[Rfam]
RNA sequence: UUGCACGUAGCCUCCCGGGCUCUUCUGAGAUUUUACAAGUGAAAUUGAAGCCCCAAAGCUCGUGCUCGAAUGACGCCGUUUAGUGUUGCAGAUUUGUCUCUUUGUACAUCUUUUCCACUUCUAAUUUGUGUCAAAUCAACGUCUAAAUAU
Numbered sequence: 001u002u003g004c005a006c007g008u009a010g011c012c013u014c015c016c017g018g019g020c021u022c023u024u025c026u027g028a029g030a031u032u033u034u035a036c037a038a039g040u041g042a043a044a045u046u047g048a049a050g051c052c053c054c055a056a057a058g059c060u061c062g063u064g065c066u067c068g069a070a071u072g073a074c075g076c077c078g079u080u081u082a083g084u085g086u087u088g089c090a091g092a093u094u095u096g097u098c099u100c101u102u103u104g105u106a107c108a109u110c111u112u113u114u115c116c117a118c119u120u121c122u123a124a125u126u127u128g129u130g131u132c133a134a135a136u137c138a139a140c141g142u143c144u145a146a147a148u149a150u
Stems, first nucleotide, its partner, number of pairs: 003065005010059002017053005022047001026043001075143001077141004084133002087130006096121001
A member of the RNA family "small nucleolar RNA snoR134" from Olea europaea, 150 nucleotides long.
Taxonomically the source falls in Olea europaea (Eukaryota, Streptophytina, eudicotyledons, Olea).
The family has 5 seed sequences and 792 matches in Rfam 15.1.
It is annotated as an H/ACA-box small nucleolar RNA.